The family of this 100-nucleotide sequence from Streptomyces toyocaensis is "ZMP/ZTP riboswitch aptamer (pfl RNA motif)". NCBI's taxonomy places the organism under Bacteria, Bacillati, Actinomycetota, Kitasatosporales, Streptomyces.

RNA sequence: GCCGUGGGCCGUGACUGGCGCGCUGGGAUGGGAGCAACCAUCGGGAAGCGGCCCCGGACCCCGCGGUCCGGAAACUGUGCCGUGCGCCUGGGCCGUACCG
Number, nucleotide and partner (000 for none) at each position: 001g000002c000003c057004g000005u000006g054007g053008g052009c051010c050011g049012u048013g000014a000015c045016u044017g088018g087019c086020g085021c084022g000023c000024u000025g000026g000027g000028a041029u040030g039031g038032g000033a000034g000035c000036a000037a000038c031039c030040a029041u028042c000043g000044g016045g015046a000047a000048g012049c011050g010051g009052c008053c007054c006055c000056g000057g003058a000059c000060c000061c000062c000063g000064c000065g000066g000067u000068c000069c000070g000071g000072a000073a000074a000075c000076u000077g000078u000079g093080c092081c091082g000083u000084g021085c020086g019087c018088c017089u000090g000091g081092g080093c079094c000095g000096u000097a000098c000099c000100g000
The base pairs follow the family's consensus structure, which is taken from published work. Gene Ontology terms of the family: regulation of purine nucleotide biosynthetic process and one-carbon metabolic process. For this family Rfam cites "Recognition of the bacterial alarmone ZMP through long-distance association of two RNA subdomains" (Jones and Ferre-D'Amare, Nat Struct Mol Biol, 2015).